[Rfam]
RNA sequence: UAAAUAUCGCAAACAGUGCUUUCCAUAUUUU
Numbered sequence: 001u002a003a004a005u006a007u008c009g010c011a012a013a014c015a016g017u018g019c020u021u022u023c024c025a026u027a028u029u030u031u
Stems, first nucleotide, its partner, number of pairs: 002030006009024001011022003014018001